[Rfam]
RNA sequence: AUAGUCACCUGGCAGGGGAGACACCUUGAUCACAAAGGAGGUUUACCCAGGGUGAGGCUCGGCAAAUGCACUCUGGUCGUGCUAAACCCUGCAAGUUCCCCAAAAUGUGGGAAUCUCGACUGAAUAAUAUAUGCUCCCGUGUGGGUCAGUUGGUAGAGCAUGGU
Numbered sequence: 001a002u003a004g005u006c007a008c009c010u011g012g013c014a015g016g017g018g019a020g021a022c023a024c025c026u027u028g029a030u031c032a033c034a035a036a037g038g039a040g041g042u043u044u045a046c047c048c049a050g051g052g053u054g055a056g057g058c059u060c061g062g063c064a065a066a067u068g069c070a071c072u073c074u075g076g077u078c079g080u081g082c083u084a085a086a087c088c089c090u091g092c093a094a095g096u097u098c099c100c101c102a103a104a105a106u107g108u109g110g111g112a113a114u115c116u117c118g119a120c121u122g123a124a125u126a127a128u129a130u131a132u133g134c135u136c137c138c139g140u141g142u143g144g145g146u147c148a149g150u151u152g153g154u155a156g157a158g159c160a161u162g163g164u
Stems, first nucleotide, its partner, number of pairs: 013122003016048003020044002023042005049090004056083003060079004092118001094116001095114003099110002140162004146157002149154001
The record is a 164-nucleotide RNA from Salmo trutta, which matches "U1 spliceosomal RNA" in Rfam.
U1 is a small nuclear RNA (snRNA) component of the spliceosome (involved in pre-mRNA splicing).